[Rfam]
RNA sequence: ACUGGAGGACUGAUGAGGCUGAGUCUGAAAAGUGAGACUUAGAUGAUGGUGGCCUCCUAGAAGAAAAGGGGUGGAGAGAGCAGCCUUGCUUACAGAAGAGUAAAGGGCUGACUGUGCCAUCUGACACUU
Numbered sequence: 001a002c003u004g005g006a007g008g009a010c011u012g013a014u015g016a017g018g019c020u021g022a023g024u025c026u027g028a029a030a031a032g033u034g035a036g037a038c039u040u041a042g043a044u045g046a047u048g049g050u051g052g053c054c055u056c057c058u059a060g061a062a063g064a065a066a067a068g069g070g071g072u073g074g075a076g077a078g079a080g081c082a083g084c085c086u087u088g089c090u091u092a093c094a095g096a097a098g099a100g101u102a103a104a105g106g107g108c109u110g111a112c113u114g115u116g117c118c119a120u121c122u123g124a125c126a127c128u129u
Base pairs, nucleotide, nucleotide: 002060003059004057005056006055007054008053017044019042021040022039023038024037025036026035068122069121070120079113080112081110082109083108084107085106086105087104091102092101093100
Record summary:
This 129-nucleotide RNA sequence from Brachypteracias leptosomus belongs to the Rfam family "Small Cajal body specific RNA 4". The family is grouped with related families in Rfam's "SCARNA4 clan". NCBI's taxonomy places the organism under Eukaryota, Archelosauria, Telluraves, Coraciimorphae, Brachypteracias. A reference for the family is Darzacq et al. (2002), "Cajal body-specific small nuclear RNAs: a novel class of 2'-O-methylation and pseudouridylation guide RNAs", EMBO J. The family's consensus secondary structure was predicted with RNAfold.